[Rfam]
RNA sequence: UUCGCAAGAACCAUUUGAAUCAAGUAUUGCAGUGAUUCACAUGAUUCUCAAAA
Numbered sequence: 001u002u003c004g005c006a007a008g009a010a011c012c013a014u015u016u017g018a019a020u021c022a023a024g025u026a027u028u029g030c031a032g033u034g035a036u037u038c039a040c041a042u043g044a045u046u047c048u049c050a051a052a053a
Stems, first nucleotide, its partner, number of pairs: 007048004012043003016039007